[Rfam]
RNA sequence: UUACAUUUUGCAAAUAUUUGGAGAGACAUUGACUUUUCUCCCCGUGCUCCCCGUUCCUCCCUGCGGAGUGCGCUGCGCCGCCCAACCCUGUCGUCCCCAGGAGGUGAUCACCUCCUCCUGCCUGAUUGCCAGUCUGACCUGUGUCCGGCUCGCGGGCCGCAGCCUCGGCCCCGGCGCGCCCCCGGCAGCUCUCGGCGCGAUG
Numbered sequence: 001u002u003a004c005a006u007u008u009u010g011c012a013a014a015u016a017u018u019u020g021g022a023g024a025g026a027c028a029u030u031g032a033c034u035u036u037u038c039u040c041c042c043c044g045u046g047c048u049c050c051c052c053g054u055u056c057c058u059c060c061c062u063g064c065g066g067a068g069u070g071c072g073c074u075g076c077g078c079c080g081c082c083c084a085a086c087c088c089u090g091u092c093g094u095c096c097c098c099a100g101g102a103g104g105u106g107a108u109c110a111c112c113u114c115c116u117c118c119u120g121c122c123u124g125a126u127u128g129c130c131a132g133u134c135u136g137a138c139c140u141g142u143g144u145c146c147g148g149c150u151c152g153c154g155g156g157c158c159g160c161a162g163c164c165u166c167g168g169c170c171c172c173g174g175c176g177c178g179c180c181c182c183c184g185g186c187a188g189c190u191c192u193c194g195g196c197g198c199g200a201u202g
Stems, first nucleotide, its partner, number of pairs: 023040004043072008075177006100115005124157001126155004131150004

Record summary:
A member of the RNA family "Mnt IRES" from Chrysochloris asiatica, 202 nucleotides long. On this family, see Stoneley et al., Oncogene 2001: "An internal ribosome entry segment in the 5' untranslated region of the mnt gene". Taxonomically the source falls in Chrysochloris (Eukaryota, Vertebrata, Gnathostomata, Theria). This family represents the Mnt internal ribosome entry site (IRES). Mnt is a transcriptional repressor related to the Myc/Mad family of transcription factors. It is thought that this family allows efficient Mnt synthesis when cap-dependent translation initiation is reduced. Its family is annotated with ribosome binding in the Gene Ontology. By type it is an internal ribosome entry site. The match comes from Rfam's covariance-model search (213 bits).